[Rfam]
Source information
Shown here is a 67-nucleotide RNA from Pipistrellus kuhlii, a member of the family "mir-9256 microRNA precursor family". Lineage of the source: Eukaryota > Bilateria > Sarcopterygii > Boreoeutheria > Pipistrellus.
RNA sequence: AUAUGCACUGAGUGGCCAGAUUAUUAUGAUCUCUGAACGCGUAACAAUCUGGCCAUUCAGUGUAUAU
Number, nucleotide and partner (000 for none) at each position: 001a000002u000003a000004u064005g063006c062007a061008c060009u059010g058011a057012g056013u055014g054015g053016c052017c051018a000019g049020a048021u047022u046023a000024u044025u043026a042027u041028g040029a000030u000031c000032u000033c000034u000035g000036a000037a000038c000039g000040c028041g027042u026043a025044a024045c000046a022047a021048u020049c019050u000051g017052g016053c015054c014055a013056u012057u011058c010059a009060g008061u007062g006063u005064a004065u000066a000067u000